The family of this 122-nucleotide RNA from Mycena chlorophos is "tRNA".
Nucleotides: 122
Base pairs, nucleotide, nucleotide: 001121002120003119004118005117006116007115010026011025012024028093029092031090032089098114099113100112101111102110
Number, partner (000 for none) and nucleotide at each position: 001121g002120g003119u004118g005117a006116g007115a008000u009000g010026g011025c012024c013000g014000a015000g016000c017000g018000g019000u020000c021000c022000a023000a024012g025011g026010c027000g028093c029092u030000a031090g032089a033000c034000u035000a036000a037000g038000g039000c040000u041000a042000g043000c044000c045000g046000c047000g048000u049000c050000u051000g052000c053000g054000g055000u056000a057000a058000a059000a060000c061000u062000g063000u064000u065000g066000u067000g068000u069000a070000a071000c072000c073000u074000g075000c076000a077000a078000c079000a080000u081000c082000u083000a084000g085000u086000c087000u088000c089032u090031c091000c092029g093028g094000a095000g096000g097000c098114g099113u100112g101111g102110g103000u104000u105000c106000g107000a108000a109000u110102c111101c112100c113099a114098c115007u116006c117005u118004c119003a120002u121001c122000a

A search with the family's covariance model found it, with a score of 49 bits. Gene Ontology term of the family: triplet codon-amino acid adaptor activity. From the family's description: Transfer RNA (tRNA) molecules are approximately 80 nucleotides in length. The base pairs follow the family's consensus structure, which is taken from published work.